[Rfam]
Nucleotides: 143
Stems, first nucleotide, its partner, number of pairs: 004066007013042006078137011092124004
Number, partner (000 for none) and nucleotide at each position: 001000u002000u003000a004066g005065c006064a007063g008062a009061g010060a011000a012000u013042g014041u015040g016039u017038a018037u019000c020000g021000g022000c023000g024000u025000g026000g027000c028000g029000c030000g031000a032000c033000g034000a035000a036000g037018g038017u039016g040015c041014g042013c043000c044000a045000a046000u047000c048000g049000c050000c051000g052000a053000a054000a055000g056000g057000u058000g059000a060010u061009c062008u063007c064006u065005g066004c067000g068000a069000a070000a071000u072000c073000g074000a075000g076000a077000a078137g079136g080135g081134g082133a083132a084131g085130g086129u087128g088127g089000g090000c091000a092124g093123u094122u095121g096000g097000a098000g099000c100000u101000c102000a103000a104000c105000u106000u107000u108000c109000c110000a111000u112000u113000g114000a115000g116000c117000u118000c119000u120000u121095c122094a123093a124092c125000a126000a127088u128087c129086a130085u131084c132083u133082u134081c135080c136079c137078c138000a139000c140000a141000u142000u143000c